[Rfam]
RNA sequence: GCGGAUGGCUGGAUGACCGCGGGCCUUUGGGUCCGAGGAAAGUCCGGACACCAGAAGGCACGGUGCCGGGUAACGCCCGGCGGGGGUAACCCCAGGGAAAGCGCCACAGAGAACAGACUACCCUGCAUGCAGGGAAAAGGUGAAACGGUGGAGUAAGAGCCCACCGCGGGACUGGCAACAGGACCGGCACGGCAAGCCCCACCGGGUGCAAUGCCAAAUAGGGACCUCGCGCCUCUUAUGGGGCAGGGACGCCUAACCCCGAGAGGUCCGGGUUGGCAGCUAGAGGCGGUCUGGUAACAGGUCGUCUAGAUGAAUGGUCAUCCAGAGGGGCAACCCUUGGACAAAAUCCGGCUUAUAGGCUGUCCGCGCAU
Numbered sequence: 001g002c003g004g005a006u007g008g009c010u011g012g013a014u015g016a017c018c019g020c021g022g023g024c025c026u027u028u029g030g031g032u033c034c035g036a037g038g039a040a041a042g043u044c045c046g047g048a049c050a051c052c053a054g055a056a057g058g059c060a061c062g063g064u065g066c067c068g069g070g071u072a073a074c075g076c077c078c079g080g081c082g083g084g085g086g087u088a089a090c091c092c093c094a095g096g097g098a099a100a101g102c103g104c105c106a107c108a109g110a111g112a113a114c115a116g117a118c119u120a121c122c123c124u125g126c127a128u129g130c131a132g133g134g135a136a137a138a139g140g141u142g143a144a145a146c147g148g149u150g151g152a153g154u155a156a157g158a159g160c161c162c163a164c165c166g167c168g169g170g171a172c173u174g175g176c177a178a179c180a181g182g183a184c185c186g187g188c189a190c191g192g193c194a195a196g197c198c199c200c201a202c203c204g205g206g207u208g209c210a211a212u213g214c215c216a217a218a219u220a221g222g223g224a225c226c227u228c229g230c231g232c233c234u235c236u237u238a239u240g241g242g243g244c245a246g247g248g249a250c251g252c253c254u255a256a257c258c259c260c261g262a263g264a265g266g267u268c269c270g271g272g273u274u275g276g277c278a279g280c281u282a283g284a285g286g287c288g289g290u291c292u293g294g295u296a297a298c299a300g301g302u303c304g305u306c307u308a309g310a311u312g313a314a315u316g317g318u319c320a321u322c323c324a325g326a327g328g329g330g331c332a333a334c335c336c337u338u339g340g341a342c343a344a345a346a347u348c349c350g351g352c353u354u355a356u357a358g359g360c361u362g363u364c365c366g367c368g369c370a371u
Base pairs, nucleotide, nucleotide: 001367002366003365004364005363006362007361008360009359010358011356012322013321014320015319016318017317018316020035021034022033023032024031025030040354041353042352044351045350046349047348048347049208050207051206052205057254058253061204062203063202064201065200066080067079068078069077070076081095082093083092084091085090096199097198101197102196103193104192105191118139119138121134122133123132124131125130147165148164149163150162151161166188167186168185169184172181173180174179212278213277214276215275222269223268224267225266226265227264246260247259248258286305287304288303289302290301291300292299293298